[Rfam]
RNA sequence: AUUGUAUAAUGAUUUAUAACUCAUAUAUCCUUGAUAAUCGGAUCAGGGGUUUCUACGAAGCGACCGUAAUUGCUUCUCUAUGAGCCAGCAGAUGGUUAAU
Number, nucleotide and partner (000 for none) at each position: 001a000002u000003u000004g000005u000006a000007u000008a000009a000010u000011g000012a000013u000014u000015u000016a000017u000018a000019a000020c084021u083022c082023a081024u080025a079026u000027a000028u000029c048030c047031u046032u045033g044034a043035u042036a000037a000038u000039c000040g000041g000042a035043u034044c033045a032046g031047g030048g029049g000050u000051u000052u000053c000054u000055a000056c000057g076058a075059a074060g073061c072062g071063a070064c000065c000066g000067u000068a000069a000070u063071u062072g061073c060074u059075u058076c057077u000078c000079u025080a024081u023082g022083a021084g020085c000086c000087a000088g000089c000090a000091g000092a000093u000094g000095g000096u000097u000098a000099a000100u000